This 100-nucleotide RNA sequence from Spinacia oleracea belongs to the Rfam family "Plastid-ycf2 5UTR RNA". A reference for the family is Richter et al. (2023), "Retrograde signaling in plants: A critical review focusing on the GUN pathway and beyond", Plant Commun. Rfam 15.1 lists 3,521 matches to the family in 417 species. Plastid ycf2 is a non-coding RNA (ncRNA) recognised in plastids. It was found in the prime untranslated region (5UTR) of ycf2 genes, it presents a tRNA-like motif which suggests it can be involved in mRNA maturation, particularly involved in defining the precise 5' end of the transcript.
[Rfam]
RNA sequence: GCGCAUCCAGCAGGAGAAGAAGUCGCUAAAGCGAAGUUUUUGGAAUCGAACCUACGAAUUAAUUAUGAGUUGGGUGCUUUAACCAUUCAGCCAUGGAUGC
Numbered sequence: 001g002c003g004c005a006u007c008c009a010g011c012a013g014g015a016g017a018a019g020a021a022g023u024c025g026c027u028a029a030a031g032c033g034a035a036g037u038u039u040u041u042g043g044a045a046u047c048g049a050a051c052c053u054a055c056g057a058a059u060u061a062a063u064u065a066u067g068a069g070u071u072g073g074g075u076g077c078u079u080u081a082a083c084c085a086u087u088c089a090g091c092c093a094u095g096g097a098u099g100c
Stems, first nucleotide, its partner, number of pairs: 003100006010055001012053003065094003069091008
Description: Lineage of the source: Eukaryota > Viridiplantae > Mesangiospermae > Anserineae > Spinacia.